[Rfam]
RNA sequence: GGUUGCUUGAGGCAGGGUACCACCCUGUGUUCUCUACGUUUCUUUGGUUGAGUGAACACAGCUGGUGGUAUCUCAGCUUCAUCCUACCU
Number, nucleotide and partner (000 for none) at each position: 001g000002g000003u000004u000005g000006c000007u000008u000009g079010a078011g077012g000013c000014a000015g074016g072017g071018u000019a069020c068021c000022a066023c065024c064025c061026u060027g059028u000029g057030u000031u055032c054033u000034c000035u000036a000037c000038g000039u000040u000041u000042c000043u000044u000045u000046g000047g000048u000049u000050g000051a000052g000053u000054g032055a031056a000057c029058a000059c027060a026061g025062c000063u000064g024065g023066u022067g000068g020069u019070a000071u017072c016073u000074c015075a000076g000077c011078u010079u009080c000081a000082u000083c000084c000085u000086a000087c000088c000089u000
RNA: mir-317 microRNA precursor family
Organism: Apolygus lucorum